[Rfam]
RNA sequence: UCCUCGCUCAAAGAAUCGCAUUCAAAGCUCACACACAAAGAAGAAUCUUCUUCUUUCAGACACUCGCUUUGGGAGAAAGUCCCCGGACAACCUGCGCUCUUCCCAGAGUUCUUCAAGCCAGGCAUUGCGGAAACGCGCCGCCAUAGAAGCAAUUCGAUAGCGGCUUACGCCCUACUCUCACCGGCCCCUGUGCUCGCCGUCCGACAGUCUCCGCUGGAUACAAUGGGGCGUGCGGCCUGGGGUUGGAGGGGAGAAGGGGGGACUUCGGUCUUCUCUUGUAUUGGGUUGCCUUUCGUCGUGGUUCGAUAGUCAUGCGAUUGCCCUUGUUCCUUGUGGACGGGGUAACUCAAUGGGGCUCAUUCUUGAGGCGAGG
Numbered sequence: 001u002c003c004u005c006g007c008u009c010a011a012a013g014a015a016u017c018g019c020a021u022u023c024a025a026a027g028c029u030c031a032c033a034c035a036c037a038a039a040g041a042a043g044a045a046u047c048u049u050c051u052u053c054u055u056u057c058a059g060a061c062a063c064u065c066g067c068u069u070u071g072g073g074a075g076a077a078a079g080u081c082c083c084c085g086g087a088c089a090a091c092c093u094g095c096g097c098u099c100u101u102c103c104c105a106g107a108g109u110u111c112u113u114c115a116a117g118c119c120a121g122g123c124a125u126u127g128c129g130g131a132a133a134c135g136c137g138c139c140g141c142c143a144u145a146g147a148a149g150c151a152a153u154u155c156g157a158u159a160g161c162g163g164c165u166u167a168c169g170c171c172c173u174a175c176u177c178u179c180a181c182c183g184g185c186c187c188c189u190g191u192g193c194u195c196g197c198c199g200u201c202c203g204a205c206a207g208u209c210u211c212c213g214c215u216g217g218a219u220a221c222a223a224u225g226g227g228g229c230g231u232g233c234g235g236c237c238u239g240g241g242g243u244u245g246g247a248g249g250g251g252a253g254a255a256g257g258g259g260g261g262a263c264u265u266c267g268g269u270c271u272u273c274u275c276u277u278g279u280a281u282u283g284g285g286u287u288g289c290c291u292u293u294c295g296u297c298g299u300g301g302u303u304c305g306a307u308a309g310u311c312a313u314g315c316g317a318u319u320g321c322c323c324u325u326g327u328u329c330c331u332u333g334u335g336g337a338c339g340g341g342g343u344a345a346c347u348c349a350a351u352g353g354g355g356c357u358c359a360u361u362c363u364u365g366a367g368g369c370g371a372g373g
Base pairs, nucleotide, nucleotide: 002373003372004371005370006369007368008366009365010364011363014319015318016317017316018315019314022073023071024070025069026068027067028066038052039051040050041049042048043047078357079356081355082354083353084352227290228289229288236285237284238283239282240281242279243278245276246273247272248271249270256266257265258264259263321342322341323340324339

Rfam assigns this 373-nucleotide RNA from Penicillium subrubescens to the family "RNase MRP". It is annotated as a ribozyme. A search with the family's covariance model found it, with a score of 116 bits. The family is grouped with related families in Rfam's "RNaseP clan". The organism belongs to Penicillium, within Eukaryota. RNase MRP is an enzymatically active ribonucleoprotein with two distinct roles in eukaryotes. On this family, see Schmitt et al., FASEB J 1993: "Secondary structure of RNase MRP RNA as predicted by phylogenetic comparison".